[Rfam]
RNA: ZMP/ZTP riboswitch aptamer (pfl RNA motif)
Organism: Actinacidiphila alni
RNA sequence: CGGGCGGGCCGUGACUGGCGCGCUGAGAUGGGGUCAACCAUCGGGAAGCGGUCCUCGCUGGAAGCGAAAGAGCCGUGCGCCUGGGCCGUCCCG
Number, nucleotide and partner (000 for none) at each position: 001c000002g000003g000004g056005c000006g054007g053008g052009c051010c050011g049012u048013g000014a000015c045016u044017g081018g080019c079020g078021c077022g000023c000024u000025g000026a000027g000028a041029u040030g039031g038032g000033g000034u000035c000036a000037a000038c031039c030040a029041u028042c000043g000044g016045g015046a000047a000048g012049c011050g010051g009052u008053c007054c006055u000056c004057g000058c000059u000060g000061g000062a000063a000064g000065c000066g000067a000068a000069a000070g000071a000072g086073c085074c084075g000076u000077g021078c020079g019080c018081c017082u000083g000084g074085g073086c072087c000088g000089u000090c000091c000092c000093g000